[Rfam]
RNA sequence: CUCUUAUUCAGAGUGGCGGAGGUACAUAGGACCGAUGAAACCACGGCAACCCCGGCAAAUGCAGGAAGGUGCCAACCUGAGCAAUUUAUUUGAACAAUAAGAG
Numbered sequence: 001c002u003c004u005u006a007u008u009c010a011g012a013g014u015g016g017c018g019g020a021g022g023u024a025c026a027u028a029g030g031a032c033c034g035a036u037g038a039a040a041c042c043a044c045g046g047c048a049a050c051c052c053c054g055g056c057a058a059a060u061g062c063a064g065g066a067a068g069g070u071g072c073c074a075a076c077c078u079g080a081g082c083a084a085u086u087u088a089u090u091u092g093a094a095c096a097a098u099a100a101g102a103g
Stems, first nucleotide, its partner, number of pairs: 001103008013044004021033003027081001030078001045073004050069002052065002055062001082092003